[Rfam]
RNA sequence: CACGCGGACCGGGCCCCUCUGGCAAGCGCCUUCCUGACGCUUGUGAUGUCGGACCGCAUCG
Numbered sequence: 001c002a003c004g005c006g007g008a009c010c011g012g013g014c015c016c017c018u019c020u021g022g023c024a025a026g027c028g029c030c031u032u033c034c035u036g037a038c039g040c041u042u043g044u045g046a047u048g049u050c051g052g053a054c055c056g057c058a059u060c061g
Stems, first nucleotide, its partner, number of pairs: 006055002009052004022044007

terC RNA: a 61-nucleotide sequence from Aurantiacibacter xanthus.